[Rfam]
Small nucleolar RNA SNORD60: an 83-nucleotide RNA sequence from Leptobrachium leishanense.
The match comes from Rfam's covariance-model search (46 bits).
Pairs were carried over by alignment from the consensus structure, which was predicted with PFOLD.
It is annotated as a C/D-box small nucleolar RNA.
Its Rfam clan is "SNORD60 clan".
Taxonomically the source falls in Leptobrachium (Eukaryota, Eumetazoa, Deuterostomia, Euteleostomi).
RNA sequence: AGCCGCUGAUGAUCCUCUUUAAAUUUCUGACACCUCAUCAGAGUGCUGUUCAUGCAAUUGCUGAUGCGUUUUAUCUGAGGCUC
Numbered sequence: 001a002g003c004c005g006c007u008g009a010u011g012a013u014c015c016u017c018u019u020u021a022a023a024u025u026u027c028u029g030a031c032a033c034c035u036c037a038u039c040a041g042a043g044u045g046c047u048g049u050u051c052a053u054g055c056a057a058u059u060g061c062u063g064a065u066g067c068g069u070u071u072u073a074u075c076u077g078a079g080g081c082u083c
Stems, first nucleotide, its partner, number of pairs: 001082004045058001047056003